This 74-nucleotide RNA from Parapedobacter composti belongs to the Rfam family "tRNA". The organism belongs to Parapedobacter, within Bacteria. Pairs were carried over by alignment from the consensus structure, which is taken from published work. The match comes from Rfam's covariance-model search (63 bits).

[Rfam]
RNA sequence: GUGGGUAUAGCUCAGUUGGUUAGAGCACCAGAUUGUGGUUCUGGGGGUCGUCGGUUCGAGCCCGAUUAUCCACC
Dot-bracket structure: (((((((..((((.........)))).(((((.......))))).....(((((.......)))))))))))).